[Rfam]
RNA: Plastid-rps18 3UTR RNA
Organism: Potentilla indica
Nucleotides: 057
Base pairs, nucleotide, nucleotide: 018037019036020035021034022033023032024031025030
Number, partner (000 for none) and nucleotide at each position: 001000g002000g003000c004000a005000a006000g007000g008000a009000u010000u011000u012000u013000a014000c015000g016000a017000u018037u019036a020035a021034g022033a023032a024031g025030c026000a027000a028000c029000u030025g031024u032023u033022u034021c035020u036019u037018g038000u039000a040000c041000a042000g043000a044000u045000u046000g047000u048000u049000u050000a051000u052000u053000a054000a055000u056000u057000u